[Rfam]
RNA sequence: GCUAAUCCUAAAGGAGUGAUAAUGAGAACACAACUGGAUUAAUUGUGAAUGACGUUUACUUGGAUCUAUUAAUUCAUUUGUGUUCUCGGGACACCCCUUUAGAAUUCGC
Numbered sequence: 001g002c003u004a005a006u007c008c009u010a011a012a013g014g015a016g017u018g019a020u021a022a023u024g025a026g027a028a029c030a031c032a033a034c035u036g037g038a039u040u041a042a043u044u045g046u047g048a049a050u051g052a053c054g055u056u057u058a059c060u061u062g063g064a065u066c067u068a069u070u071a072a073u074u075c076a077u078u079u080g081u082g083u084u085c086u087c088g089g090g091a092c093a094c095c096c097c098u099u100u101a102g103a104a105u106u107c108g109c
Base pairs, nucleotide, nucleotide: 008102011099012098013097014096016094017093018092024087025086026085027084028083029082030081031080032079033078
Annotation
Rfam assigns this 109-nucleotide RNA sequence from Salvia splendens to the family "MIR398 microRNA precursor family". The organism belongs to core Calosphace, within Eukaryota. The base pairs follow the family's consensus structure, which was predicted with WAR. Rfam 15.1 lists 627 matches to the family in 211 species. The match comes from Rfam's covariance-model search (58 bits).